RNA: U12 minor spliceosomal RNA
Organism: Ceutorhynchus assimilis
RNA sequence: GUGCCUUAAACUAAUGAGUAAGGAAAAUAUUCAAGCCUUGGUAACGCUCGGCUUACAUGCUAGCGAUAUACUAGUCUGAAUUUUUUGAGGGGCACAGGUCGUCCCGCGGACCACCGCCUACAUAUUGCGUGUCGGUCUUGGUGUAGCGAUCUGCCCC
Numbered sequence: 001g002u003g004c005c006u007u008a009a010a011c012u013a014a015u016g017a018g019u020a021a022g023g024a025a026a027a028u029a030u031u032c033a034a035g036c037c038u039u040g041g042u043a044a045c046g047c048u049c050g051g052c053u054u055a056c057a058u059g060c061u062a063g064c065g066a067u068a069u070a071c072u073a074g075u076c077u078g079a080a081u082u083u084u085u086u087g088a089g090g091g092g093c094a095c096a097g098g099u100c101g102u103c104c105c106g107c108g109g110a111c112c113a114c115c116g117c118c119u120a121c122a123u124a125u126u127g128c129g130u131g132u133c134g135g136u137c138u139u140g141g142u143g144u145a146g147c148g149a150u151c152u153g154c155c156c157c
Stems, first nucleotide, its partner, number of pairs: 004023005033054005040047001059075005089157005096152007105141001108138005113132002115129003